[Rfam]
Nucleotides: 400
Stems, first nucleotide, its partner, number of pairs: 001396010011385001012365007020037006042383003046380005051228004058301004063224005068082005083097001084095004098219002103217002105213003120158002122154005129147001166184006186208001187206008232322004281313006293305004329348008
Number, partner (000 for none) and nucleotide at each position: 001396u002395g003394a004393g005392u006391u007390g008389g009388c010387u011385a012365g013364g014363u015362g016361g017360u018359c019000g020037c021036g022035g023034c024033c025032g026000u027000g028000a029000u030000c031000u032025c033024g034023g035022u036021c037020g038000a039000g040000g041000a042383a043382c044381g045000u046380c047379c048378g049377g050376a051228c052227u053226c054225c055000a056000u057000a058301g059300g060299g061298c062000a063224g064223g065222g066221u067220g068082g069081u070080u071079g072078c073000u074000a075000a076000c077000g078072g079071c080070a081069a082068c083097c084095c085094a086093a087092g088000g089000u090000g091000a092087c093086u094085u095084g096000c097083g098219g099218g100000a101000u102000a103217g104216u105213g106212c107211c108000a109000c110000a111000g112000a113000a114000a115000a116000u117000a118000g119000a120158c121157c122154g123153c124152u125151g126150a127000c128000c129147u130000g131000g132000c133000u134000u135000c136000u137000u138000a139000u140000a141000a142000g143000c144000g145000a146000g147129g148000a149000a150126u151125c152124a153123g154122u155000a156000a157121g158120g159000g160000u161000g162000a163000a164000a165000c166184g167183g168182u169181g170180g171179u172000g173000u174000a175000a176000g177000a178000g179171a180170c181169c182168a183167c184166c185000a186208g187206c188205g189204g190203c191202g192201u193200c194199g195000g196000u197000g198000a199194c200193g201192g202191c203190g204189u205188c206187g207000g208186c209000u210000c211107g212106g213105u214000a215000a216104a217103c218099c219098c220067c221066a222065c223064c224063c225054g226053g227052a228051g229000c230000a231000a232322g233321g234320u235319c236000a237000a238000g239000a240000c241000g242000a243000g244000a245000c246000u247000c248000u249000u250000c251000c252000g253000c254000g255000a256000u257000g258000u259000g260000a261000a262000c263000u264000u265000c266000g267000a268000g269000g270000g271000a272000g273000a274000u275000c276000u277000c278000a279000a280000c281313g282312c283311g284310a285309a286308c287000g288000u289000u290000c291000g292000a293305g294304g295303g296302c297000g298061g299060c300059c301058c302296g303295c304294c305293c306000g307000a308286g309285u310284u311283c312282g313281c314000g315000g316000g317000u318000a319235g320234a321233c322232c323000g324000c325000a326000c327000g328000a329348g330347c331346g332345a333344g334343u335342c336341g337000g338000c339000g340000a341336c342335g343334g344333c345332u346331c347330g348329c349000c350000c351000a352000g353000a354000u355000g356000g357000a358000u359018g360017g361016c362015c363014a364013c365012c366000c367000a368000c369000g370000a371000c372000a373000g374000a375000a376050u377049c378048c379047g380046g381044c382043g383042u384000a385011u386000c387010g388009g389008c390007c391006a392005a393004c394003u395002c396001a397000c398000c399000u400000c
A member of the RNA family "Bacterial RNase P class A" from Natronoglycomyces albus, 400 nucleotides long. Gene Ontology terms of the family: ribonuclease P activity, dimeric ribonuclease P complex and tRNA processing. NCBI's taxonomy places the organism under Bacteria, Actinomycetes, Glycomycetales, Glycomycetaceae, Natronoglycomyces. The base pairs follow the family's consensus structure, which is taken from published work.